[Rfam]
RNA: RT-14 RNA
Organism: Cloacimonas acidaminivorans
RNA sequence: UUCCAUUAUAAUAAUCAGAAUUUACUCUGUACGCAAAGUAAAUGUAAAAAAGGGAAAUCCAGAGCUUCAUCCAGUUCUCUAAAAGAGACAAAAAGAAAGUGAGUUUAUUGCUGAGUAGUUAAAUCAAAAAGCAGUAAACUCU
Number, nucleotide and partner (000 for none) at each position: 001u000002u000003c000004c000005a000006u053007u052008a000009u000010a000011a000012u047013a000014a000015u000016c000017a000018g000019a000020a000021u042022u041023u040024a039025c038026u037027c000028u035029g034030u000031a000032c000033g000034c029035a028036a000037a026038g025039u024040a023041a022042a021043u000044g000045u000046a000047a012048a000049a000050a000051a000052g007053g006054g000055a000056a000057a000058u000059c000060c000061a000062g000063a000064g000065c000066u000067u000068c000069a000070u000071c000072c000073a000074g000075u000076u088077c087078u086079c085080u000081a000082a000083a000084a000085g079086a078087g077088a076089c000090a000091a000092a000093a000094a000095g000096a000097a000098a000099g000100u000101g141102a140103g139104u138105u137106u136107a135108u134109u133110g132111c131112u130113g000114a000115g000116u000117a000118g125119u000120u000121a000122a000123a000124u000125c118126a000127a000128a000129a000130a112131g111132c110133a109134g108135u107136a106137a105138a104139c103140u102141c101142u000